[Rfam]
RNA sequence: UCCUCCCUGGCGCAGUCGGCAGCGCGUUAGGCUGUUAACCUACAGGUCGUUGGUUCGAAUCCAACGGGAGGAG
Number, nucleotide and partner (000 for none) at each position: 001u072002c071003c070004u069005c068006c067007c066008u000009g000010g025011c024012g023013c022014a000015g000016u000017c000018g000019g000020c000021a000022g013023c012024g011025c010026g000027u000028u042029a041030g040031g039032c000033u000034g000035u000036u000037a000038a000039c031040c030041u029042a028043c000044a000045g000046g000047u000048c000049g065050u064051u063052g062053g061054u000055u000056c000057g000058a000059a000060u000061c053062c052063a051064a050065c049066g007067g006068g005069a004070g003071g002072a001073g000
RNA: tRNA